[Rfam]
RNA sequence: AAAAACGCUAAAAACUUUGGCAAUUUCUUCAAAUUUAUGAAGAAAUUGCUAAAAGUUUUGGCGUUUUCU
Numbered sequence: 001a002a003a004a005a006c007g008c009u010a011a012a013a014a015c016u017u018u019g020g021c022a023a024u025u026u027c028u029u030c031a032a033a034u035u036u037a038u039g040a041a042g043a044a045a046u047u048g049c050u051a052a053a054a055g056u057u058u059u060g061g062c063g064u065u066u067u068c069u
Stems, first nucleotide, its partner, number of pairs: 004065008014056005019050006026043003
A member of the RNA family "miR-430 microRNA precursor family" from Dendrobium nobile, 69 nucleotides long. The base pairs follow the family's consensus structure, which was predicted with RNAalifold.